[Rfam]
RNA sequence: UGGCCUGAAAUGAUGUUCAGAGUUCAUGUCUCUUCUCUGAGGUGUCUCGUGGAGACAGCCGGAUACUUUUCUGAUCAGGCUU
Numbered sequence: 001u002g003g004c005c006u007g008a009a010a011u012g013a014u015g016u017u018c019a020g021a022g023u024u025c026a027u028g029u030c031u032c033u034u035c036u037c038u039g040a041g042g043u044g045u046c047u048c049g050u051g052g053a054g055a056c057a058g059c060c061g062g063a064u065a066c067u068u069u070u071c072u073g074a075u076c077a078g079g080c081u082u
Base pairs, nucleotide, nucleotide: 002081003080004079005078
Small nucleolar RNA SNORD111: an 82-nucleotide sequence from Lamprotornis superbus. Rfam 15.1 lists 894 matches to the family in 541 species. For this family Rfam cites "RNomics: an experimental approach that identifies 201 candidates for novel, small, non-messenger RNAs in mouse" (Huttenhofer et al., EMBO J, 2001). The organism belongs to Lamprotornis, within Eukaryota. By type it is a C/D-box small nucleolar RNA.